[Rfam]
RNA sequence: ACCCGUGAUGAUAUAAUCCAUGCUGUUUGAGGUGUAGUGGAGCCAAGUCCCUGUCAUUACAGGGGAACCUACUUGGUGAAGCUACAUUUCACAUGAUAUUACUGGGUUAUACUGAGGU
Dot-bracket structure: (((.............................................(((((......)))))...................................................)))
Overview: This 118-nucleotide RNA from Actinidia chinensis belongs to the Rfam family "Small nucleolar RNA Z278". Rfam classes the family as a C/D-box small nucleolar RNA. snoZ278 is a C/D box small nucleolar RNA. Its methylation guide targets have not been reported. It scores 53 bits against the family's covariance model.